[Rfam]
RNA sequence: AAAAAGGCUCUUUUUAGAGCCACCCACCUUGGUCAUAAAAGGUUG
Numbered sequence: 001a002a003a004a005a006g007g008c009u010c011u012u013u014u015u016a017g018a019g020c021c022a023c024c025c026a027c028c029u030u031g032g033u034c035a036u037a038a039a040a041g042g043u044u045g
Stems, first nucleotide, its partner, number of pairs: 006021006